[Rfam]
RNA sequence: UACCUGUGAUGGGUCUUCGUCAGAAGGUUCACCGUUAUCCACGCACACCUUUCAGUGCACACCUUAGCAGGAGCCCAGUUCGAGUCUUGUGGUGUUCGCUUCACUCCCUUAGGUAACUAGGGAUGCUGGACGAACCUAAGCAAUGAAUGCAAUUGGCGAGUGAAGAAAUUCAGCAGUCGAGUAUUCACCAUGAGACGGCGGCGCUGGAAUACUCCCGUUUGGGUUGAAGGGCGUGUGUUGGGCUGGUGGUUCGACUGACAUU
Numbered sequence: 001u002a003c004c005u006g007u008g009a010u011g012g013g014u015c016u017u018c019g020u021c022a023g024a025a026g027g028u029u030c031a032c033c034g035u036u037a038u039c040c041a042c043g044c045a046c047a048c049c050u051u052u053c054a055g056u057g058c059a060c061a062c063c064u065u066a067g068c069a070g071g072a073g074c075c076c077a078g079u080u081c082g083a084g085u086c087u088u089g090u091g092g093u094g095u096u097c098g099c100u101u102c103a104c105u106c107c108c109u110u111a112g113g114u115a116a117c118u119a120g121g122g123a124u125g126c127u128g129g130a131c132g133a134a135c136c137u138a139a140g141c142a143a144u145g146a147a148u149g150c151a152a153u154u155g156g157c158g159a160g161u162g163a164a165g166a167a168a169u170u171c172a173g174c175a176g177u178c179g180a181g182u183a184u185u186c187a188c189c190a191u192g193a194g195a196c197g198g199c200g201g202c203g204c205u206g207g208a209a210u211a212c213u214c215c216c217g218u219u220u221g222g223g224u225u226g227a228a229g230g231g232c233g234u235g236u237g238u239u240g241g242g243c244u245g246g247u248g249g250u251u252c253g254a255c256u257g258a259c260a261u262u
Stems, first nucleotide, its partner, number of pairs: 002014003019259005030248001032245001035241002041238006048231007062223003066219003070215004075207005080201003084196009094135001096133003100130003105123005111118002136140001144187007154179004162171003
Rfam assigns this 262-nucleotide sequence from Didymella pomorum to the family "Fungal signal recognition particle RNA". A search with the family's covariance model found it, with a score of 130 bits. Gene Ontology terms of the family: signal recognition particle, endoplasmic reticulum targeting, signal recognition particle, plasma membrane targeting and SRP-dependent cotranslational protein targeting to membrane, signal sequence recognition. Clan: SRP clan. The base pairs follow the family's consensus structure, which is taken from published work. The family's RNA type in Rfam is non-coding RNA gene. The family has 50 seed sequences and 748 matches in Rfam 15.1.